[Rfam]
RNA: Alphaproteobacterial ar14
Nucleotides: 120
Stems, first nucleotide, its partner, number of pairs: 007041003012036006046078010086114010
Number, partner (000 for none) and nucleotide at each position: 001000g002000a003000c004000u005000u006000u007041c008040g009039c010000a011000a012036g013035g014034g015033u016032c017031c018000a019000c020000u021000c022000c023000u024000c025000c026000u027000c028000c029000c030000a031017g032016g033015a034014c035013c036012c037000a038000a039009g040008c041007g042000g043000a044000u045000c046078g047077g048076a049075a050074a051073c052072u053071g054070c055069c056000a057000c058000u059000c060000c061000u062000c063000c064000u065000c066000c067000c068000a069055g070054g071053c072052a073051g074050u075049u076048u077047c078046c079000a080000c081000c082000c083000a084000g085000a086114c087113g088112c089111c090110c091109g092108c093107c094106g095105g096000g097000u098000c099000c100000u101000c102000c103000c104000c105095c106094c107093g108092g109091c110090g111089g112088g113087c114086g115000c116000c117000c118000a119000g120000a